[Rfam]
RNA sequence: GGGCUGUCCUCAGAGCAGGGGGCCUGAAGAAAUGGCUCCUCAAUUUACAACACACCCAACAGAAAUCUGAGUUCACUGUGACAAGGGGCACAAACUUGUGGCCUUCCUAUGAACAAAUACCCAACACAU
Dot-bracket structure: .((.(((.....(((..(((((((.........))).))))..))).....))).)).............(.(...(((..((.(((.((((....)))).))).....)).)))...).)........
Numbered sequence: 001g002g003g004c005u006g007u008c009c010u011c012a013g014a015g016c017a018g019g020g021g022g023c024c025u026g027a028a029g030a031a032a033u034g035g036c037u038c039c040u041c042a043a044u045u046u047a048c049a050a051c052a053c054a055c056c057c058a059a060c061a062g063a064a065a066u067c068u069g070a071g072u073u074c075a076c077u078g079u080g081a082c083a084a085g086g087g088g089c090a091c092a093a094a095c096u097u098g099u100g101g102c103c104u105u106c107c108u109a110u111g112a113a114c115a116a117a118u119a120c121c122c123a124a125c126a127c128a129u
Stems, first nucleotide, its partner, number of pairs: 002057002005054003013046003018041004022036003071121001073119001077115003082111002085104003089100004